[Rfam]
RNA: MIR1120/MIR1122 microRNA precursor family
RNA sequence: GUACUCCCUCUGUAAACUAAUAUAAGAGCGUUUAGAUCACUACUUUAGUAUUCUAAACGCUCUUAUAUUAGUUUACGGAGGGAGUAA
Numbered sequence: 001g002u003a004c005u006c007c008c009u010c011u012g013u014a015a016a017c018u019a020a021u022a023u024a025a026g027a028g029c030g031u032u033u034a035g036a037u038c039a040c041u042a043c044u045u046u047a048g049u050a051u052u053c054u055a056a057a058c059g060c061u062c063u064u065a066u067a068u069u070a071g072u073u074u075a076c077g078g079a080g081g082g083a084g085u086a087a
Stems, first nucleotide, its partner, number of pairs: 003085003007081005013075005019069018039049003